[Rfam]
RNA: Actino-pnp RNA
Nucleotides: 064
Stems, first nucleotide, its partner, number of pairs: 002063006009056005017048005023042004028037002
Number, partner (000 for none) and nucleotide at each position: 001000c002063u003062c004061g005060g006059u007058c008000c009056u010055c011054g012053g013052u014000a015000g016000u017048g018047g019046u020045u021044u022000u023042c024041g025040g026039g027000a028037c029036u030000c031000c032000u033000a034000c035000g036029a037028g038000c039026c040025c041024c042023g043000c044021g045020g046019a047018c048017c049000u050000c051000g052013a053012u054011c055010g056009a057000a058007g059006a060005c061004c062003g063002g064000u